Annotation: Shown here is a 587-nucleotide part of an RNA from Paralcaligenes ureilyticus, a member of the family "Bacterial large subunit ribosomal RNA". A search with the family's covariance model found it, with a score of 2806 bits.
RNA sequence: CCCGCGGCUAGACGGAAAGACCCCAUGAACCUUUACUGUAGCUUUGCAUUGGACUGUGAACCGGCCUGUGUAGGAUAGGUGGGAGGCAUUGAAGCCGCGUCGCUAGACGUGGUGGAGCCAACCUUGAAAUACCACCCUGGUUUGUUUGCGGUUCUAACCUUGGCCCAUUAUCUGGGUUGGGGACAGUGCAUGGUGGGCAGUUUGACUGGGGCGGUCUCCUCCUAAAGCGUAACGGAGGAGUUCGAAGGUACGCUAGGUACGGUCGGAAAUCGUGCUGAUAGUGCAAUGGCAUAAGCGUGCUUGACUGUGAGACUGACACGUCGAACAGGUGCGAAAGCAGGACAUAGUGAUCCGGUGGUUCUGAAUGGAAGGGCCAUCGCUCAACGGAUAAAAGGUACUCUGGGGAUAACAGGCUGAUACCGCCCAAGAGUUCAUAUCGACGGCGGUGUUUGGCACCUCGAUGUCGGCUCAUCUCAUCCUGGGGCUGUAGCCGGUCCCAAGGGUAUGGCUGUUCGCCAUUUAAAGAGGUACGUGAGCUGGGUUUAAAACGUCGUGAGACAGUUUGGUCCCUAUCUGCCGUGGGCGUU
Numbered sequence: 001c002c003c004g005c006g007g008c009u010a011g012a013c014g015g016a017a018a019g020a021c022c023c024c025a026u027g028a029a030c031c032u033u034u035a036c037u038g039u040a041g042c043u044u045u046g047c048a049u050u051g052g053a054c055u056g057u058g059a060a061c062c063g064g065c066c067u068g069u070g071u072a073g074g075a076u077a078g079g080u081g082g083g084a085g086g087c088a089u090u091g092a093a094g095c096c097g098c099g100u101c102g103c104u105a106g107a108c109g110u111g112g113u114g115g116a117g118c119c120a121a122c123c124u125u126g127a128a129a130u131a132c133c134a135c136c137c138u139g140g141u142u143u144g145u146u147u148g149c150g151g152u153u154c155u156a157a158c159c160u161u162g163g164c165c166c167a168u169u170a171u172c173u174g175g176g177u178u179g180g181g182g183a184c185a186g187u188g189c190a191u192g193g194u195g196g197g198c199a200g201u202u203u204g205a206c207u208g209g210g211g212c213g214g215u216c217u218c219c220u221c222c223u224a225a226a227g228c229g230u231a232a233c234g235g236a237g238g239a240g241u242u243c244g245a246a247g248g249u250a251c252g253c254u255a256g257g258u259a260c261g262g263u264c265g266g267a268a269a270u271c272g273u274g275c276u277g278a279u280a281g282u283g284c285a286a287u288g289g290c291a292u293a294a295g296c297g298u299g300c301u302u303g304a305c306u307g308u309g310a311g312a313c314u315g316a317c318a319c320g321u322c323g324a325a326c327a328g329g330u331g332c333g334a335a336a337g338c339a340g341g342a343c344a345u346a347g348u349g350a351u352c353c354g355g356u357g358g359u360u361c362u363g364a365a366u367g368g369a370a371g372g373g374c375c376a377u378c379g380c381u382c383a384a385c386g387g388a389u390a391a392a393a394g395g396u397a398c399u400c401u402g403g404g405g406a407u408a409a410c411a412g413g414c415u416g417a418u419a420c421c422g423c424c425c426a427a428g429a430g431u432u433c434a435u436a437u438c439g440a441c442g443g444c445g446g447u448g449u450u451u452g453g454c455a456c457c458u459c460g461a462u463g464u465c466g467g468c469u470c471a472u473c474u475c476a477u478c479c480u481g482g483g484g485c486u487g488u489a490g491c492c493g494g495u496c497c498c499a500a501g502g503g504u505a506u507g508g509c510u511g512u513u514c515g516c517c518a519u520u521u522a523a524a525g526a527g528g529u530a531c532g533u534g535a536g537c538u539g540g541g542u543u544u545a546a547a548a549c550g551u552c553g554u555g556a557g558a559c560a561g562u563u564u565g566g567u568c569c570c571u572a573u574c575u576g577c578c579g580u581g582g583g584c585g586u587u
Stems, first nucleotide, its partner, number of pairs: 001583008010575003014570002022404004027400002029396005035201004042193002045190004051154011063142004068137001078136005085119003094113008158181003162178006204216004217239006240385001242342002248300006254280002257275006281290002305328004311322003330339003353379007361372002413454003417451001418448007428438002465540001466538004470532001471529005478503002481498006505519005546564004550559003
Dot-bracket structure: ((((((((.(((.((......((((.(((((((.((((...((.((((..(((((((((((.((((.(.........(((((..(((......((((((((....))))))))...)))............)))))).)))).)))))))))))...(((.((((((.....))))))))).....)))).))....))))..((((.....))))((((((...........))))))(.((....((((((((.((((((.......))))))...))((......))....))))))....((((..(((......)))..)))).(((....))).))..........(((((((.((........))))))))).....)......)))))..))))))........(((.((((((((...((.......))...)))))))..))))..........(((((((((((..((.((((((......))))))...)).(((((.....))))).....)))))..)..)))).).....(((((((....))).))))....))..)))))))))))....